[Rfam]
RNA sequence: ACGCCGCAAAAAAGCAGAGCAUAUAUAGUCUCCGCGCAAAGGGCGGAGAGUUUCUACCGACGAGCCUGCCCGUCGACUAUAUGCGGUUUUUCCGCAUAC
Number, nucleotide and partner (000 for none) at each position: 001a000002c000003g000004c000005c000006g000007c000008a000009a000010a000011a000012a000013a000014g000015c000016a000017g000018a000019g084020c083021a082022u081023a080024u079025a078026u000027a000028g000029u049030c048031u047032c046033c045034g044035c043036g000037c000038a000039a000040a000041g000042g000043g035044c034045g033046g032047a031048g030049a029050g000051u000052u000053u000054c000055u000056a000057c000058c075059g074060a073061c072062g071063a000064g069065c000066c000067u000068g000069c064070c000071c062072g061073u060074c059075g058076a000077c000078u025079a024080u023081a022082u021083g020084c019085g000086g000087u000088u000089u000090u000091u000092c000093c000094g000095c000096a000097u000098a000099c000
The family of this 99-nucleotide sequence from Subdoligranulum sp. CAG:314 is "Purine riboswitch aptamer".
It scores 51 bits against the family's covariance model.
The source organism's lineage runs through Bacteria, Bacillota, Clostridia, Eubacteriales and Subdoligranulum.